The record is a 64-nucleotide sequence from Phyllostomus discolor, which matches "Small nucleolar RNA SNORD2" in Rfam. It is annotated as a C/D-box small nucleolar RNA. NCBI's taxonomy places the organism under Eukaryota, Bilateria, Craniata, Theria, Phyllostomus. Rfam 15.1 lists 1,116 matches to the family in 660 species. Its family is annotated with RNA processing and nucleolus in the Gene Ontology.
RNA sequence: AAGUGAAAUUAUGGCAAUCAUAUUUUGGAACCAAUCUGAAAUGAAUACUCAUUGCCGAUCACUU
Numbered sequence: 001a002a003g004u005g006a007a008a009u010u011a012u013g014g015c016a017a018u019c020a021u022a023u024u025u026u027g028g029a030a031c032c033a034a035u036c037u038g039a040a041a042u043g044a045a046u047a048c049u050c051a052u053u054g055c056c057g058a059u060c061a062c063u064u
Stems, first nucleotide, its partner, number of pairs: 001064006

Description:
On this family, see Zhou et al., Gene 2004: "Identification of a novel box C/D snoRNA from mouse nucleolar cDNA library".